Mason-Pfizer monkey virus packaging signal: a 280-nucleotide RNA from Nannospalax galili. It is annotated as a cis-regulatory element. Pairs were carried over by alignment from the consensus structure, which was predicted with PFOLD. Taxonomically the source falls in Nannospalax (Eukaryota, Gnathostomata, Dipnotetrapodomorpha, Muroidea). On this family, see Mustafa et al., Virus Res 2004: "Mutational analysis of the predicted secondary RNA structure of the Mason-Pfizer monkey virus packaging signal". From the family's description: This family represents a group of sequences that are related to the Mason-Pfizer monkey virus (MPMV) packaging signal. The packaging signal is located in the 5' UTR and is required for specific RNA encapsidation.

RNA sequence: UGGCGCCCAAUGUGGCCUGGAUACUGAGGGGGCUAUCGUGAGGGAGGAUGGAAAAAGGAAGGAGUGCACUCGCUAAGUUUCAAGCAAUUCAGAGUGCCGGGGGAGCCUGCUGCAACCGAACUGAAAGUAAGUAAGUCAAUCCGACCGAUCAUGGGGCAAGCAUUGAGCCAGCAUCAGAUUUAUGUAAAGCAAUUGAGGGAUGCUUUAAAGGAAAGAGGAGUAAAGGUUAAGACUGCAGAUUUGUUUCAUUUCUUUGAUUUUGUAAAGGAUGUCUGUCCUU
Numbered sequence: 001u002g003g004c005g006c007c008c009a010a011u012g013u014g015g016c017c018u019g020g021a022u023a024c025u026g027a028g029g030g031g032g033c034u035a036u037c038g039u040g041a042g043g044g045a046g047g048a049u050g051g052a053a054a055a056a057g058g059a060a061g062g063a064g065u066g067c068a069c070u071c072g073c074u075a076a077g078u079u080u081c082a083a084g085c086a087a088u089u090c091a092g093a094g095u096g097c098c099g100g101g102g103g104a105g106c107c108u109g110c111u112g113c114a115a116c117c118g119a120a121c122u123g124a125a126a127g128u129a130a131g132u133a134a135g136u137c138a139a140u141c142c143g144a145c146c147g148a149u150c151a152u153g154g155g156g157c158a159a160g161c162a163u164u165g166a167g168c169c170a171g172c173a174u175c176a177g178a179u180u181u182a183u184g185u186a187a188a189g190c191a192a193u194u195g196a197g198g199g200a201u202g203c204u205u206u207a208a209a210g211g212a213a214a215g216a217g218g219a220g221u222a223a224a225g226g227u228u229a230a231g232a233c234u235g236c237a238g239a240u241u242u243g244u245u246u247c248a249u250u251u252c253u254u255u256g257a258u259u260u261u262g263u264a265a266a267g268g269a270u271g272u273c274u275g276u277c278c279u280u
Stems, first nucleotide, its partner, number of pairs: 006031003012024003036048002039045001084132002087128002094121002099113001101111002140158001142156001145154003164207003167203002215255006224242005265280006